[Rfam]
RNA sequence: CAAUGAAAGUAGAAGUUUCCGCUUCUCACCUUAUAGCUAUGGCUCAUAUGGUCAGUUAAAACAAAUAUAAAUCUUAUGUGUAUAAGAUUUAUUAUUCAUGUAAACUUAGAGCGGGUAUUUUUAUACCGGCUCUUUAUUAUUUUA
Numbered sequence: 001c002a003a004u005g006a007a008a009g010u011a012g013a014a015g016u017u018u019c020c021g022c023u024u025c026u027c028a029c030c031u032u033a034u035a036g037c038u039a040u041g042g043c044u045c046a047u048a049u050g051g052u053c054a055g056u057u058a059a060a061a062c063a064a065a066u067a068u069a070a071a072u073c074u075u076a077u078g079u080g081u082a083u084a085a086g087a088u089u090u091a092u093u094a095u096u097c098a099u100g101u102a103a104a105c106u107u108a109g110a111g112c113g114g115g116u117a118u119u120u121u122u123a124u125a126c127c128g129g130c131u132c133u134u135u136a137u138u139a140u141u142u143u144a
Stems, first nucleotide, its partner, number of pairs: 011026006028052003033047002036043002110131003114127005